FMN riboswitch aptamer (RFN element): a 133-nucleotide RNA sequence from Aeromicrobium terrae.
The family has 146 seed sequences and 6,230 matches in Rfam 15.1.
A search with the family's covariance model found it, with a score of 90 bits.
NCBI's taxonomy places the organism under Bacteria, Bacillati, Propionibacteriales, Nocardioidaceae, Aeromicrobium.
Pairs were carried over by alignment from the consensus structure, which is taken from published work.
Nucleotides: 133
Stems, first nucleotide, its partner, number of pairs: 003131006010124001017029003031112002033101002035049004044099002053076002081097005103115003
Number, partner (000 for none) and nucleotide at each position: 001000u002000c003131g004130c005129g006128u007127g008126c009000a010124c011000a012000g013000g014000g015000g016000u017029c018028g019027g020000u021000g022000a023000a024000a025000u026000u027019c028018c029017g030000a031112g032111c033101c034100g035049g036048c037047g038046g039000u040000g041000a042000c043000a044099g045098u046038c047037c048036g049035c050000g051000a052000c053076c054075c055000g056000a057000g058000u059000c060000c061000a062000g063000c064000u065000u066000g067000c068000u069000g070000g071000a072000c073000g074000a075054g076053g077000u078000u079000g080000a081097a082096c083095c084094g085093g086000u087000g088000g089000a090000a091000c092000u093085c094084c095083g096082g097081u098045a099044c100034c101033g102000a103115c104114g105113g106000u107000c108000a109000g110000a111032g112031u113105c114104c115103g116000g117000a118000u119000g120000g121000g122000a123000u124010g125000c126008g127007c128006a129005c130004g131003c132000g133000u